[Rfam]
RNA sequence: CCUCGAAGCAGUGUUCUGGAAUCCUAUGUGAGGGACAAACAUUCAGAACCAAGCAGCAGUGUUCUGGAACUCUGUAUGAGGGA
Numbered sequence: 001c002c003u004c005g006a007a008g009c010a011g012u013g014u015u016c017u018g019g020a021a022u023c024c025u026a027u028g029u030g031a032g033g034g035a036c037a038a039a040c041a042u043u044c045a046g047a048a049c050c051a052a053g054c055a056g057c058a059g060u061g062u063u064c065u066g067g068a069a070c071u072c073u074g075u076a077u078g079a080g081g082g083a
Stems, first nucleotide, its partner, number of pairs: 001081005007075001009074003013070010024059002027056001028054002032050002
Dot-bracket structure: (((((.(.(((.((((((((((.((.(((..((...............))..)).).)).)))))))))).)))).)))))..
mir-1299 microRNA precursor family: an 83-nucleotide sequence from Homo sapiens.
Pairs were carried over by alignment from the consensus structure, which was predicted with RNAalifold.
Rfam links the family to the GO terms miRNA-mediated post-transcriptional gene silencing and RISC complex.
Rfam 15.1 lists 113 matches to the family in 8 species.